[Rfam]
RNA sequence: UAAUUCACGUCCGGGGUACUCCUCCUCCCAAGCCACGGACGUCUAAAGACCGGCACUCCUCCCUCCCAGCCGGUCUUUACAAAUAGCACCCACCGCACCUCCUCCCGCGGUGGGUGUUGUUU
Numbered sequence: 001u002a003a004u005u006c007a008c009g010u011c012c013g014g015g016g017u018a019c020u021c022c023u024c025c026u027c028c029c030a031a032g033c034c035a036c037g038g039a040c041g042u043c044u045a046a047a048g049a050c051c052g053g054c055a056c057u058c059c060u061c062c063c064u065c066c067c068a069g070c071c072g073g074u075c076u077u078u079a080c081a082a083a084u085a086g087c088a089c090c091c092a093c094c095g096c097a098c099c100u101c102c103u104c105c106c107g108c109g110g111u112g113g114g115u116g117u118u119g120u121u122u
Stems, first nucleotide, its partner, number of pairs: 007042003011038003015034003045078010086117011
RNA: Alphaproteobacterial ar14